RNA sequence: CCGGCCCGCACUAGCGGGUCGGUAACUGACACCGGUACCUGACACGGCCGGUGCAG
Numbered sequence: 001c002c003g004g005c006c007c008g009c010a011c012u013a014g015c016g017g018g019u020c021g022g023u024a025a026c027u028g029a030c031a032c033c034g035g036u037a038c039c040u041g042a043c044a045c046g047g048c049c050g051g052u053g054c055a056g
Base pairs, nucleotide, nucleotide: 001022002021003020004019005018006017007016008015009014026056027055028054030053031052032051033050034049035048036047
RNA: L17-Actino-Proteobacteria ribosomal protein leader